[Rfam]
A member of the RNA family "RNase MRP" from Hyphodiscus hymeniophilus, 453 nucleotides long. Rfam 15.1 lists 3,510 matches to the family in 2,315 species. The family's RNA type in Rfam is ribozyme.
RNA sequence: UCCUCGCCCAAACGAUCGCACAUUUGAAGCACACAAACAGAGACUUUUUAGGAAGUCUCAGCUAGCAAUAGCUACAUAAGCUUUAGGGAAAGUCCCCGGACAACCUUCUUUGAAGGACAGUUUCAAAACGCCGCCAUAGAAGCGCGGUCACUCCUCGACCUAUUCUACGCCUCCCUCCACCCUCUCACCGUUUGUACUACGUCCUCGUUGACCUUGAAACCAAGCCAUUACCGGGGAAGACCACAUGGAUGAAGAUAUGAGUCCGCGCUUCUCCUGCAACGGGCUUGGGACCAGGAAAGAGGGGGUCGUAGGAGGUGUUUGGACUGUUCUUGGAACAGCGCGGAUGUUUAAGUCGUUGGAAUUUUUUCGUCGUGAUUGACAGUUAUACGAUCGCCUCUCUGCCGUGCAAGCGGUAAGAGGGGUAACUCGAUGGGGCUUAUUCUUGGUGCGAGG
Numbered sequence: 001u002c003c004u005c006g007c008c009c010a011a012a013c014g015a016u017c018g019c020a021c022a023u024u025u026g027a028a029g030c031a032c033a034c035a036a037a038c039a040g041a042g043a044c045u046u047u048u049u050a051g052g053a054a055g056u057c058u059c060a061g062c063u064a065g066c067a068a069u070a071g072c073u074a075c076a077u078a079a080g081c082u083u084u085a086g087g088g089a090a091a092g093u094c095c096c097c098g099g100a101c102a103a104c105c106u107u108c109u110u111u112g113a114a115g116g117a118c119a120g121u122u123u124c125a126a127a128a129c130g131c132c133g134c135c136a137u138a139g140a141a142g143c144g145c146g147g148u149c150a151c152u153c154c155u156c157g158a159c160c161u162a163u164u165c166u167a168c169g170c171c172u173c174c175c176u177c178c179a180c181c182c183u184c185u186c187a188c189c190g191u192u193u194g195u196a197c198u199a200c201g202u203c204c205u206c207g208u209u210g211a212c213c214u215u216g217a218a219a220c221c222a223a224g225c226c227a228u229u230a231c232c233g234g235g236g237a238a239g240a241c242c243a244c245a246u247g248g249a250u251g252a253a254g255a256u257a258u259g260a261g262u263c264c265g266c267g268c269u270u271c272u273c274c275u276g277c278a279a280c281g282g283g284c285u286u287g288g289g290a291c292c293a294g295g296a297a298a299g300a301g302g303g304g305g306u307c308g309u310a311g312g313a314g315g316u317g318u319u320u321g322g323a324c325u326g327u328u329c330u331u332g333g334a335a336c337a338g339c340g341c342g343g344a345u346g347u348u349u350a351a352g353u354c355g356u357u358g359g360a361a362u363u364u365u366u367u368c369g370u371c372g373u374g375a376u377u378g379a380c381a382g383u384u385a386u387a388c389g390a391u392c393g394c395c396u397c398u399c400u401g402c403c404g405u406g407c408a409a410g411c412g413g414u415a416a417g418a419g420g421g422g423u424a425a426c427u428c429g430a431u432g433g434g435g436c437u438u439a440u441u442c443u444u445g446g447u448g449c450g451a452g453g
Base pairs, nucleotide, nucleotide: 002453003452004451005450006449007448008446009445010444011443014392015391016390017389018388024086025085026084027083028082029081030080040059041058042057043056044055045054046053090438091437092436094435095434096433097432112124113123114122115121241343242342244340326336327335328334329333394422395421396420397419398418399417
The family's consensus secondary structure is taken from published work.